[Rfam]
RNA sequence: AGAUCGAUGAUGACUCCUAAAUAUACAUUCCUUGGAAAUCUGAUCAAAAUGGGUGAAAAGCCUAUACCAUCAUCUUAAUCGAACUGGAGUCC
Numbered sequence: 001a002g003a004u005c006g007a008u009g010a011u012g013a014c015u016c017c018u019a020a021a022u023a024u025a026c027a028u029u030c031c032u033u034g035g036a037a038a039u040c041u042g043a044u045c046a047a048a049a050u051g052g053g054u055g056a057a058a059a060g061c062c063u064a065u066a067c068c069a070u071c072a073u074c075u076u077a078a079u080c081g082a083a084c085u086g087g088a089g090u091c092c
Base pairs, nucleotide, nucleotide: 002091003090004089026055027054028053029052030051032047033046034045
This 92-nucleotide sequence from Carlito syrichta belongs to the Rfam family "Small nucleolar RNA SNORD116". For this family Rfam cites "Identification of brain-specific and imprinted small nucleolar RNA genes exhibiting an unusual genomic organization" (Cavaille et al., Proc Natl Acad Sci U S A, 2000). NCBI's taxonomy places the organism under Eukaryota, Vertebrata, Mammalia, Tarsiiformes, Carlito. The base pairs follow the family's consensus structure, which was predicted with PFOLD. The family has 48 seed sequences and 3,260 matches in Rfam 15.1.